RNA: SAM-I/IV (S-adenosyl methionine) riboswitch aptamer
RNA sequence: CUUCUGCAUCAAGAGAUGGGCCUUUUUUUCGGCCCGCGCCAACCUGCCAGACCGGCAAGGUGGUGGUCCAUGAGGACGAUGCGGCCAAUCGGCAAACCGGUCUUCUUGC
Numbered sequence: 001c002u003u004c005u006g007c008a009u010c011a012a013g014a015g016a017u018g019g020g021c022c023u024u025u026u027u028u029u030c031g032g033c034c035c036g037c038g039c040c041a042a043c044c045u046g047c048c049a050g051a052c053c054g055g056c057a058a059g060g061u062g063g064u065g066g067u068c069c070a071u072g073a074g075g076a077c078g079a080u081g082c083g084g085c086c087a088a089u090c091g092g093c094a095a096a097c098c099g100g101u102c103u104u105c106u107u108g109c
Base pairs, nucleotide, nucleotide: 006082007081008080009079010078015037017036018035019034020033021032038064039063040062043060044059045058046056047055048054050105051104084093085092086091